[Rfam]
RNA sequence: AACCAACUUCUGCCAAAUGAAUAUAAUGAUAUCACUUAUAAAACCAUUCCAUUUUGAUUCUGAGGUU
Numbered sequence: 001a002a003c004c005a006a007c008u009u010c011u012g013c014c015a016a017a018u019g020a021a022u023a024u025a026a027u028g029a030u031a032u033c034a035c036u037u038a039u040a041a042a043a044c045c046a047u048u049c050c051a052u053u054u055u056g057a058u059u060c061u062g063a064g065g066u067u
Stems, first nucleotide, its partner, number of pairs: 001067004